[Rfam]
RNA: G-CSF factor stem-loop destabilising element (SLDE)
Organism: Tupaia belangeri
RNA sequence: CCUGAGAUUCCACCCUGGCCCGUGGGGCAUCAGGAGGUCUCCCAUGUGGGAGACCAGACACCUGUUUAAUAUUUAAACAGCAGUGUUCCCC
Numbered sequence: 001c002c003u004g005a006g007a008u009u010c011c012a013c014c015c016u017g018g019c020c021c022g023u024g025g026g027g028c029a030u031c032a033g034g035a036g037g038u039c040u041c042c043c044a045u046g047u048g049g050g051a052g053a054c055c056a057g058a059c060a061c062c063u064g065u066u067u068a069a070u071a072u073u074u075a076a077a078c079a080g081c082a083g084u085g086u087u088c089c090c091c
Stems, first nucleotide, its partner, number of pairs: 003022002006019001010018002030058002037054007062080008